RNA sequence: CAGCAUCGAAAAUGGACGGACUUUCCCGAUGGAUCGUUUCGUAUAAUUUUGGUGCAAAAUAGUAGAGAGACGCAGUGUUACUCUUCCUUACGUUACCUGUAUCUGGAGAGUGUCAAGCGUUUCCCACAUUU
Numbered sequence: 001c002a003g004c005a006u007c008g009a010a011a012a013u014g015g016a017c018g019g020a021c022u023u024u025c026c027c028g029a030u031g032g033a034u035c036g037u038u039u040c041g042u043a044u045a046a047u048u049u050u051g052g053u054g055c056a057a058a059a060u061a062g063u064a065g066a067g068a069g070a071c072g073c074a075g076u077g078u079u080a081c082u083c084u085u086c087c088u089u090a091c092g093u094u095a096c097c098u099g100u101a102u103c104u105g106g107a108g109a110g111u112g113u114c115a116a117g118c119g120u121u122u123c124c125c126a127c128a129u130u131u
Stems, first nucleotide, its partner, number of pairs: 003055009016042005024033003065125001067123007076115002079112008089101004
Description
This 131-nucleotide RNA from Caenorhabditis elegans belongs to the Rfam family "Caenorhabditis snoRNA ceN80". For this family Rfam cites "Systematic identification of non-coding RNA 2,2,7-trimethylguanosine cap structures in Caenorhabditis elegans" (Jia et al., BMC Mol Biol, 2007). Rfam links the family to the GO terms nucleolus and RNA processing. The base pairs follow the family's consensus structure, which was predicted with RNAalifold. The source organism's lineage runs through Eukaryota, Metazoa, Eumetazoa, Rhabditoidea and Caenorhabditis. The sequence is in the family's curated seed alignment.